[Rfam]
RNA: U4atac minor spliceosomal RNA
RNA sequence: ACCAUCCUUUCUUGGGAUUGCACUACUACCGUCCAAUGACCACAUAGCGAGGGCAGUACUGCUAAUACCCACACAACACACCCGCCUCAACUCCAGCUUUGCUUAACAUUGGUGCAAUUUUUGGAAAA
Numbered sequence: 001a002c003c004a005u006c007c008u009u010u011c012u013u014g015g016g017a018u019u020g021c022a023c024u025a026c027u028a029c030c031g032u033c034c035a036a037u038g039a040c041c042a043c044a045u046a047g048c049g050a051g052g053g054c055a056g057u058a059c060u061g062c063u064a065a066u067a068c069c070c071a072c073a074c075a076a077c078a079c080a081c082c083c084g085c086c087u088c089a090a091c092u093c094c095a096g097c098u099u100u101g102c103u104u105a106a107c108a109u110u111g112g113u114g115c116a117a118u119u120u121u122u123g124g125a126a127a128a
Stems, first nucleotide, its partner, number of pairs: 004018005020062003025057003031054004041047001084115002087112003092106001095103003